[Rfam]
RNA: Plastid-ccsA-ndhD-1 3UTR RNA
RNA sequence: UAAGCCAUGGAGAACCUUUUGAAUCAAAGUAGUGAUUCAAAAGGUUCUUACAAA
Number, nucleotide and partner (000 for none) at each position: 001u000002a000003a000004g000005c000006c000007a000008u000009g000010g049011a048012g047013a046014a045015c044016c043017u042018u041019u040020u039021g038022a037023a036024u035025c034026a033027a000028a000029g000030u000031a000032g000033u026034g025035a024036u023037u022038c021039a020040a019041a018042a017043g016044g015045u014046u013047c012048u011049u010050a000051c000052a000053a000054a000